Rfam assigns this 118-nucleotide sequence from Orycteropus afer to the family "Small nucleolar RNA SNORA26". On this family, see Huttenhofer et al., EMBO J 2001: "RNomics: an experimental approach that identifies 201 candidates for novel, small, non-messenger RNAs in mouse". The organism belongs to Orycteropus afer, within Eukaryota. Rfam links the family to the GO terms RNA processing and nucleolus.
RNA sequence: GUGCCCUUUUAAGGUUGAUGCAGCACGUAAGGCUGACACAGCAGGAUAAAGUAAAUCUCCAGAACACCCAGAGAAGAGAUUGUGGAACUCCUCUUGGAUCCUGUCUGGAGUCACAGCU
Numbered sequence: 001g002u003g004c005c006c007u008u009u010u011a012a013g014g015u016u017g018a019u020g021c022a023g024c025a026c027g028u029a030a031g032g033c034u035g036a037c038a039c040a041g042c043a044g045g046a047u048a049a050a051g052u053a054a055a056u057c058u059c060c061a062g063a064a065c066a067c068c069c070a071g072a073g074a075a076g077a078g079a080u081u082g083u084g085g086a087a088c089u090c091c092u093c094u095u096g097g098a099u100c101c102u103g104u105c106u107g108g109a110g111u112c113a114c115a116g117c118u
Base pairs, nucleotide, nucleotide: 002048003047005045006044007043009041010040014037015036016035017034019032057110058109059108060107061106068097069096070095072094073093074092076090077089078088080087081086
It scores 95 bits against the family's covariance model. The snoRNA HBI-6 belong to the H/ACA family of snoRNAs, guiding the pseudouridylation of position U4522 if the 28S rRNA. HBI-6 is the human orthologue of mouse MBI-6 snoRNA. The family's consensus secondary structure was predicted with RNAalifold.